RNA: Bacterial large subunit ribosomal RNA, nucleotides 2091 to 2408
RNA sequence: CGGGAGAACCCUCAUUAAGGAACUCGGCAAAAUGACUCCGUAACUUCGGGAGAAGGAGUGCCGAAAGGCCGCAGAGAAGAGGCCCAAGCGACUGUUUACCAAAAACACAGGUCUCUGCUAAGUCGGAAGACGAAGUAUAGGGGCUGACGCCUGCCCGGUGCUGGAAGGUUAAGGGGAAGUGUGAGAGCACUGAACCGAAGCCCCAGUGAACGGCGGCCGUAACUAUAACGGUCCUAAGGUAGCGAAAUUCCUUGUCGGGUAAGUUCCGACCCGCACGAAAGGCGUAACGACUUGGGCGCUGUCUUGAUGAGGGGCCCG
Number, nucleotide and partner (000 for none) at each position: 001c318002g317003g316004g315005a000006g000007a000008a000009c313010c312011c311012u310013c309014a308015u307016u306017a000018a304019g303020g302021a000022a000023c000024u000025c000026g000027g000028c000029a000030a000031a000032a000033u000034g000035a059036c058037u057038c056039c055040g000041u000042a000043a000044c049045u000046u000047c000048g000049g044050g000051a000052g000053a000054a000055g039056g038057a037058g036059u035060g069061c068062c067063g000064a000065a000066a000067g062068g061069c060070c074071g000072c000073a000074g070075a000076g000077a000078a000079g000080a000081g000082g297083c296084c295085c294086a293087a292088g291089c289090g288091a000092c000093u107094g106095u105096u000097u000098a000099c000100c000101a000102a000103a000104a000105a095106c094107a093108c000109a000110g145111g144112u143113c142114u141115c140116u139117g138118c135119u000120a000121a000122g131123u130124c129125g000126g000127a000128a000129g124130a123131c122132g000133a000134a000135g118136u000137a000138u117139a116140g115141g114142g113143g112144c111145u110146g000147a000148c284149g283150c282151c281152u000153g214154c213155c212156c000157g000158g211159u210160g207161c206162u205163g204164g203165a000166a000167g202168g201169u200170u000171a000172a000173g196174g195175g000176g000177a000178a191179g190180u189181g188182u187183g000184a000185g000186a000187g182188c181189a180190c179191u178192g000193a000194a000195c174196c173197g000198a000199a000200g169201c168202c167203c164204c163205a162206g161207u160208g000209a000210a159211c158212g155213g154214c153215g233216g232217c231218c230219g229220u228221a000222a000223c000224u000225a000226u000227a000228a220229c219230g218231g217232u216233c215234c238235u000236a000237a000238g234239g000240u000241a000242g000243c000244g271245a000246a000247a000248u000249u000250c000251c000252u000253u000254g270255u269256c268257g267258g266259g265260u000261a000262a000263g000264u000265u259266c258267c257268g256269a255270c254271c244272c000273g000274c000275a000276c000277g000278a000279a000280a000281g151282g150283c149284g148285u000286a000287a000288c090289g089290a000291c088292u087293u086294g085295g084296g083297c082298g000299c000300u000301g000302u020303c019304u018305u000306g016307a015308u014309g013310a012311g011312g010313g009314g000315c004316c003317c002318g001